[Rfam]
RNA sequence: CCUCCCGUUCUUGGCGGGACCCGGUGACCCCGUACCGGGCUCCGUGAUGUGCGGAGGUCACAGCAACUCCCGGCGCGAUGUCUUCGGUGCCCGCGGCCUCCUCCGCCGGUCCCACCCUCCCGUGCCGGGACACCC
Numbered sequence: 001c002c003u004c005c006c007g008u009u010c011u012u013g014g015c016g017g018g019a020c021c022c023g024g025u026g027a028c029c030c031c032g033u034a035c036c037g038g039g040c041u042c043c044g045u046g047a048u049g050u051g052c053g054g055a056g057g058u059c060a061c062a063g064c065a066a067c068u069c070c071c072g073g074c075g076c077g078a079u080g081u082c083u084u085c086g087g088u089g090c091c092c093g094c095g096g097c098c099u100c101c102u103c104c105g106c107c108g109g110u111c112c113c114a115c116c117c118u119c120c121c122g123u124g125c126c127g128g129g130a131c132a133c134c135c
Stems, first nucleotide, its partner, number of pairs: 001057005015044004020039001022037004071127006090109002093106004
Rfam assigns this 135-nucleotide sequence from Podargus strigoides to the family "Small nucleolar RNA SNORA57". From the family's description: U99 belongs to the H/ACA class of snoRNAs which are thought to guide the sites of modification of uridines to pseudouridines, the target for this family is unknown. Rfam classes the family as an H/ACA-box small nucleolar RNA. Taxonomically the source falls in Podargus (Eukaryota, Bilateria, Sauropsida, Saurischia).